The record is a 79-nucleotide RNA from Halanaerobium sp. DL-01, which matches "c-di-GMP-I riboswitch aptamer" in Rfam. Pairs were carried over by alignment from the consensus structure, which is taken from published work. Rfam links the family to the GO term cyclic-di-GMP binding. NCBI's taxonomy places the organism under Bacteria, Bacillota, Halanaerobiales, Halanaerobiaceae, Halanaerobium.
[Rfam]
RNA sequence: AUUUAUUUUUGGCAAAAUCGGUGAAAACCGGUGACGCAAAGCUAUGGGUCUAAUACAAAAUGACUGCCAGGCUGCAAAA
Numbered sequence: 001a002u003u004u005a006u007u008u009u010u011g012g013c014a015a016a017a018u019c020g021g022u023g024a025a026a027a028c029c030g031g032u033g034a035c036g037c038a039a040a041g042c043u044a045u046g047g048g049u050c051u052a053a054u055a056c057a058a059a060a061u062g063a064c065u066g067c068c069a070g071g072c073u074g075c076a077a078a079a
Base pairs, nucleotide, nucleotide: 012037013036017032018031019030020029021028022027040073041072042071043070045069046068047067048064049063050062